The family of this 72-nucleotide RNA sequence from Rhinopithecus roxellana is "mir-3689 microRNA precursor family". Pairs were carried over by alignment from the consensus structure, which was predicted with RNAalifold. The organism belongs to Rhinopithecus, within Eukaryota.
RNA sequence: GGGGGGUGUGACCCCAUGCUCCCUGGGAGGUGUGAACCUGCGCUCCCUGGGGGUUGUGACCCCACGCCCGCU
Number, nucleotide and partner (000 for none) at each position: 001g071002g000003g069004g068005g067006g000007u000008g000009u000010g000011a000012c000013c000014c000015c058016a057017u056018g055019c000020u053021c052022c051023c050024u049025g048026g047027g046028a000029g044030g000031u042032g041033u040034g039035a000036a000037c000038c000039u034040g033041c032042g031043c000044u029045c000046c027047c026048u025049g024050g023051g022052g021053g020054u000055u018056g017057u016058g015059a000060c000061c000062c000063c000064a000065c000066g000067c005068c004069c003070g000071c001072u000